[Rfam]
RNA sequence: GUAUAUUCAGCAGCAAUGUCUGCUAAUAUAC
Numbered sequence: 001g002u003a004u005a006u007u008c009a010g011c012a013g014c015a016a017u018g019u020c021u022g023c024u025a026a027u028a029u030a031c
Stems, first nucleotide, its partner, number of pairs: 001031007009024005014018001
Annotation:
Shown here is a 31-nucleotide RNA sequence from Adiantum capillus-veneris, a member of the family "Iron response element II". Gene Ontology term of the family: response to iron ion. IRE, TFRC, SLC40A1, SDHB, SLC11A2, CDC42BPA, ACO2, ALAS2_H.SAPIENS, CDC14A, EPAS1, ALAS2, qoxD, Hao1, NDUFS1, transferrin, Aconitate. Rfam 15.1 lists 5,197 matches to the family in 722 species.